The record is a 93-nucleotide RNA sequence from Treponema vincentii, which matches "TD-2 RNA" in Rfam. Lineage of the source: Bacteria > Spirochaetota > Treponemataceae > Treponema > Treponema vincentii. The family is grouped with related families in Rfam's "TD (Treponema denticola) motifs". Rfam 15.1 lists 310 matches to the family in 11 species.

[Rfam]
RNA sequence: AGCGGCACGGAUGCCGCUCGUUCCAAGCAGAAACAAGAUUGCUUGCAAACUUGUAGCCCAAAAAUGUGCGCGGAUGUACAUUUUUGGGCGAGG
Numbered sequence: 001a002g003c004g005g006c007a008c009g010g011a012u013g014c015c016g017c018u019c020g021u022u023c024c025a026a027g028c029a030g031a032a033a034c035a036a037g038a039u040u041g042c043u044u045g046c047a048a049a050c051u052u053g054u055a056g057c058c059c060a061a062a063a064a065u066g067u068g069c070g071c072g073g074a075u076g077u078a079c080a081u082u083u084u085u086g087g088g089c090g091a092g093g
Base pairs, nucleotide, nucleotide: 001018002017003016004015005014006013034053035052036051037050039048040047041046056089057088058087059086060085061084062083063082064081065080066079067078068077069076